Shown here is a 241-nucleotide RNA from Papaver somniferum, a member of the family "RNase MRP". Rfam 15.1 lists 3,510 matches to the family in 2,315 species. Rfam links the family to the GO terms rRNA processing, ribonuclease MRP activity and ribonuclease MRP complex. Rfam's curators write: RNase MRP is an enzymatically active ribonucleoprotein with two distinct roles in eukaryotes. Clan: RNaseP clan.

[Rfam]
RNA sequence: GGACAUCAGGACGAAGUGAGCGGGUUCUUCUUGGACCCAGGAAAGUCCCCGGGCCCUAGACCGUAGAGAUACGGGCUCGGAAACGAGUAAGCUACGCGCAACGAGGUCCGCUUGCUUUCGGGCAAAAGGCUGAGACACGUGUGGAGCCUGGAUCUCUUGCCGUCGCAACCUUGGCCGAUUUAACACAGUUAUUCACUUGGUCCAGCUGGACUAACUGAACGGGGAUUACGAUUCUGAUGUC
Numbered sequence: 001g002g003a004c005a006u007c008a009g010g011a012c013g014a015a016g017u018g019a020g021c022g023g024g025u026u027c028u029u030c031u032u033g034g035a036c037c038c039a040g041g042a043a044a045g046u047c048c049c050c051g052g053g054c055c056c057u058a059g060a061c062c063g064u065a066g067a068g069a070u071a072c073g074g075g076c077u078c079g080g081a082a083a084c085g086a087g088u089a090a091g092c093u094a095c096g097c098g099c100a101a102c103g104a105g106g107u108c109c110g111c112u113u114g115c116u117u118u119c120g121g122g123c124a125a126a127a128g129g130c131u132g133a134g135a136c137a138c139g140u141g142u143g144g145a146g147c148c149u150g151g152a153u154c155u156c157u158u159g160c161c162g163u164c165g166c167a168a169c170c171u172u173g174g175c176c177g178a179u180u181u182a183a184c185a186c187a188g189u190u191a192u193u194c195a196c197u198u199g200g201u202c203c204a205g206c207u208g209g210a211c212u213a214a215c216u217g218a219a220c221g222g223g224g225a226u227u228a229c230g231a232u233u234c235u236g237a238u239g240u241c
Base pairs, nucleotide, nucleotide: 002241003240004239005238006237007236008235009234010233011232014198015197016196017195018194019193022038023037024036025035026034027033043227044226047224048223049222050221062073063072064071065070075088076087077086078085079084091169093167098160099159100158101157103155117152118151119150127149128148129147130146137142200211201210202209203208